[Rfam]
RNA sequence: GUUAAAUAGCCUGAAAAACACACAUGCACCGACACAUGGUCCCGGGUGCCGUCGGCGAGUCCGAGGGUCGGAUCCAUGGGGUGCGUGGAGGCCCAAC
Numbered sequence: 001g002u003u004a005a006a007u008a009g010c011c012u013g014a015a016a017a018a019c020a021c022a023c024a025u026g027c028a029c030c031g032a033c034a035c036a037u038g039g040u041c042c043c044g045g046g047u048g049c050c051g052u053c054g055g056c057g058a059g060u061c062c063g064a065g066g067g068u069c070g071g072a073u074c075c076a077u078g079g080g081g082u083g084c085g086u087g088g089a090g091g092c093c094c095a096a097c
Stems, first nucleotide, its partner, number of pairs: 023087008035078005040072003048068003052064001
Dot-bracket structure: ......................((((((((....((((((((.....(((.(...........).))).))).))))).))))))))..........
This 97-nucleotide RNA from Onishia taeanensis belongs to the Rfam family "t44 RNA". The match comes from Rfam's covariance-model search (72 bits). The source organism's lineage runs through Bacteria, Pseudomonadati, Oceanospirillales, Halomonadaceae and Onishia. About the family: This family consists of a number of bacterial RNA genes of between 135 and 170 bases in length. The t44 gene has been identified in several species of enteric bacteria but homologs have also been identified in Pseudomonas and Coxiella species. The t44 gene is found between the map and rpsB genes in all species in the full alignment apart from Shigella flexneri. The function of this RNA is unknown. The base pairs follow the family's consensus structure, which was predicted with LocARNA.